Rfam assigns this 61-nucleotide RNA from Cardinalis cardinalis to the family "U7 small nuclear RNA". Rfam describes the family as follows. Animal histone pre-mRNAs are spliced by a different mechanism than nuclear pre-mRNAs and self-splicing introns. The family's consensus secondary structure was predicted with PFOLD.
RNA sequence: CAGUGAUUUCAGCUCUUUUAGAAUUUGUCCAGCAGGUUUCCCGCGCCUGCGGGAAGCCGCU
Number, nucleotide and partner (000 for none) at each position: 001c000002a000003g000004u000005g000006a000007u000008u000009u000010c000011a000012g000013c000014u000015c000016u000017u000018u000019u000020a000021g000022a000023a000024u000025u000026u000027g000028u000029c000030c000031a000032g000033c000034a000035g058036g057037u056038u055039u054040c053041c052042c051043g050044c000045g000046c000047c000048u000049g000050c043051g042052g041053g040054a039055a038056g037057c036058c035059g000060c000061u000